The record is an 81-nucleotide RNA from Betta splendens, which matches "mir-459 microRNA precursor family" in Rfam. A search with the family's covariance model found it, with a score of 80 bits. Rfam links the family to the GO terms RISC complex and miRNA-mediated post-transcriptional gene silencing.
RNA sequence: UGUGUCGCUGUCAGUAACAAGGAUUCAUCCUGUUGUGAUGCUGCUGGCCAACAGGAAGUCACUGUUACUGGGGGCGAGCCU
Dot-bracket structure: ..........(((((((((..((((...(((((((.(.(......).)))))))).))))..)))))))))..........